[Rfam]
RNA sequence: ACACACGUUAUUGGGCCACUUGGUCCUUUAACACAUGCCUCGCCAUUUCCUUCCAAAAGAAAGAUUGUCGAGAUGAAAGCGCGGUUUUUAUGGAUGUUUUUUGUCCGCGCGUCAACGCCCUCCUUUUUGAUCUUGCGCUGGCCGCAAAACCGGGAGAGGAAUCAAAAACAAGUCCUAGUG
Numbered sequence: 001a002c003a004c005a006c007g008u009u010a011u012u013g014g015g016c017c018a019c020u021u022g023g024u025c026c027u028u029u030a031a032c033a034c035a036u037g038c039c040u041c042g043c044c045a046u047u048u049c050c051u052u053c054c055a056a057a058a059g060a061a062a063g064a065u066u067g068u069c070g071a072g073a074u075g076a077a078a079g080c081g082c083g084g085u086u087u088u089u090a091u092g093g094a095u096g097u098u099u100u101u102u103g104u105c106c107g108c109g110c111g112u113c114a115a116c117g118c119c120c121u122c123c124u125u126u127u128u129g130a131u132c133u134u135g136c137g138c139u140g141g142c143c144g145c146a147a148a149a150c151c152g153g154g155a156g157a158g159g160a161a162u163c164a165a166a167a168a169c170a171a172g173u174c175c176u177a178g179u180g
Stems, first nucleotide, its partner, number of pairs: 007032002015024003038075001039072004044067002048064002054059001093174003096169002099167005118159002120156004127152001129150001133147005
Dot-bracket structure: ......((......(((....)))......)).....(((((.((..((....(....)...)).)).))))..).................(((((.(((((..............((((((...(.(...(((((.....)))))..).))))).))...)))))))..)))......
RNA: Ascomycota telomerase RNA, nucleotides 942 to 1121
Organism: Claviceps purpurea